RNA: U5 spliceosomal RNA
Nucleotides: 128
Base pairs, nucleotide, nucleotide: 003085004084005083006082009073010072011071014069015068016067017066018065019064020063033059034058035057036056037055038054039053040052107128112124
Number, partner (000 for none) and nucleotide at each position: 001000a002000u003085c004084g005083c006082c007000a008000g009073a010072a011071g012000a013000u014069c015068a016067a017066u018065u019064u020063c021000g022000u023000u024000c025000a026000a027000u028000c029000g030000u031000a032000c033059a034058u035057g036056g037055u038054u039053c040052u041000u042000g043000u044000c045000u046000u047000u048000u049000c050000c051000c052040a053039g054038a055037a056036c057035c058034a059033u060000c061000c062000g063020g064019g065018a066017a067016u068015u069014g070000u071011c072010u073009u074000c075000a076000u077000u078000c079000a080000a081000u082006g083005g084004u085003g086000u087000a088000u089000c090000a091000a092000a093000u094000u095000u096000u097000a098000a099000u100000u101000u102000u103000u104000u105000g106000g107128a108000a109000c110000c111000c112124c113000c114000c115000u116000u117000u118000c119000a120000u121000u122000a123000u124112g125000a126000u127000a128107u